[Rfam]
RNA sequence: GAGCUGUGAGGAUUUUAAAGGAAUCUGAGAUGCCAUUGAAGACAUAAGAUCCAACUCUGAGCUCGCUAAAAAG
Numbered sequence: 001g002a003g004c005u006g007u008g009a010g011g012a013u014u015u016u017a018a019a020g021g022a023a024u025c026u027g028a029g030a031u032g033c034c035a036u037u038g039a040a041g042a043c044a045u046a047a048g049a050u051c052c053a054a055c056u057c058u059g060a061g062c063u064c065g066c067u068a069a070a071a072a073g
Base pairs, nucleotide, nucleotide: 001064002063003062004061
Background: This 73-nucleotide RNA sequence from Chloropsis cyanopogon belongs to the Rfam family "Small nucleolar RNA SNORD19". The organism belongs to Chloropsis, within Eukaryota. A search with the family's covariance model found it, with a score of 46 bits.